The record is a 173-nucleotide RNA sequence from Mycobacterium talmoniae, which matches "M-box riboswitch aptamer (ykoK leader)" in Rfam. Pairs were carried over by alignment from the consensus structure. The organism belongs to Mycobacterium, within Bacteria. About the family: M-box riboswitch, also know as ykoK leader is described as a metaloregulatory RNA that sense divalent metals and function as a genetic control element of genes related to divalent metal transport in bacteria. On this family, see Barrick et al., Proc Natl Acad Sci U S A 2004: "New RNA motifs suggest an expanded scope for riboswitches in bacterial genetic control".

RNA sequence: GAUGCACCUCGUUAGGCGAGGCUCCUGGAUGAACACAGGCCACUGAUCUGACGACGUCGAGAGACGCCCAAGAUCAGGACAGAUCUCCCCGGCUUAAGGGGUGAUCCCAAGUGGCUUCCCGGCUGUACGGGGAUACGUCGCCCAGUGCCGAAGCUCAACGUGUGAGGGCACCG
Numbered sequence: 001g002a003u004g005c006a007c008c009u010c011g012u013u014a015g016g017c018g019a020g021g022c023u024c025c026u027g028g029a030u031g032a033a034c035a036c037a038g039g040c041c042a043c044u045g046a047u048c049u050g051a052c053g054a055c056g057u058c059g060a061g062a063g064a065c066g067c068c069c070a071a072g073a074u075c076a077g078g079a080c081a082g083a084u085c086u087c088c089c090c091g092g093c094u095u096a097a098g099g100g101g102u103g104a105u106c107c108c109a110a111g112u113g114g115c116u117u118c119c120c121g122g123c124u125g126u127a128c129g130g131g132g133a134u135a136c137g138u139c140g141c142c143c144a145g146u147g148c149c150g151a152a153g154c155u156c157a158a159c160g161u162g163u164g165a166g167g168g169c170a171c172c173g
Base pairs, nucleotide, nucleotide: 007167008166009165010164011159012158013097015155016154017153020149021148022147025145026144027143028142030140031139032138039115040114041113042112043111045075046074047073048072049071055066056065057064058063082106083105084104085103088100089099090098117133118132119131